Description: XIST RNA A repeat: a 37-nucleotide sequence from Cavia porcellus. By type it is a small RNA. The match comes from Rfam's covariance-model search (50 bits).

RNA sequence: UUGCCCAUCGGGGCUGCGGAUACCUGCCUUUUUUCUU
Numbered sequence: 001u002u003g004c005c006c007a008u009c010g011g012g013g014c015u016g017c018g019g020a021u022a023c024c025u026g027c028c029u030u031u032u033u034u035c036u037u
Stems, first nucleotide, its partner, number of pairs: 003014004017026003
The organism belongs to Cavia, within Eukaryota. A reference for the family is Duszczyk et al. (2011), "The Xist RNA A-repeat comprises a novel AUCG tetraloop fold and a platform for multimerization", RNA. Pairs were carried over by alignment from the consensus structure, which was predicted with CMfinder.